Background:
The family of this 58-nucleotide RNA sequence from Kocuria dechangensis is "msiK RNA". Pairs were carried over by alignment from the consensus structure, which is taken from published work. By type it is a cis-regulatory element. Lineage of the source: Bacteria > Bacillati > Actinomycetota > Micrococcales > Kocuria.
[Rfam]
RNA sequence: UAGUCAUUCCAUUCACUACGGAUCGUCCGGCACGUACCUGCCGGUGAAGGAAGCUCAU
Numbered sequence: 001u002a003g004u005c006a007u008u009c010c011a012u013u014c015a016c017u018a019c020g021g022a023u024c025g026u027c028c029g030g031c032a033c034g035u036a037c038c039u040g041c042c043g044g045u046g047a048a049g050g051a052a053g054c055u056c057a058u
Stems, first nucleotide, its partner, number of pairs: 009050002012048004027044006